The record is a 148-nucleotide part of an RNA from Entamoeba invadens, which matches "Eukaryotic small subunit ribosomal RNA" in Rfam. Rfam links the family to the GO terms structural constituent of ribosome and ribosome. Clan: SSU clan. The sequence is in the family's curated seed alignment. The organism belongs to Entamoeba, within Eukaryota. The family has 90 seed sequences and 75,755 matches in Rfam 15.1.
[Rfam]
Nucleotides: 148
Stems, first nucleotide, its partner, number of pairs: 003115001005112001008108002011105001013102005019096002023092001025091003029087002032084005039077002042074004049067007117140003121136006
Number, partner (000 for none) and nucleotide at each position: 001000c002000a003115c004000c005112g006000c007000c008108c009107g010000u011105c012000g013102c014101u015100c016099c017098u018000a019096c020095c021000g022000a023092u024000u025091g026090a027089a028000c029087a030086a031000a032084g033083a034082g035081g036080u037000g038000a039077a040076a041000u042074u043073u044072u045071a046000a047000g048000a049067c050066g051065a052064u053063g054062a055061a056000u057000a058000a059000u060000u061055u062054u063053c064052a065051u066050u067049g068000g069000a070000a071045u072044g073043g074042a075000u076040u077039u078000a079000a080036a081035c082034c083033u084032c085000c086030u087029u088000a089027u090026u091025u092023a093000g094000a095020g096019g097000a098017a099016g100015g101014a102013g103000a104000a105011g106000u107009c108008g109000u110000a111000a112005c113000a114000a115003g116000g117140u118139u119138u120000u121136c122135g123134u124133a125132g126131g127000u128000g129000a130000a131126c132125c133124u134123g135122c136121g137000u138119a139118a140117g141000g142000a143000u144000c145000a146000u147000u148000c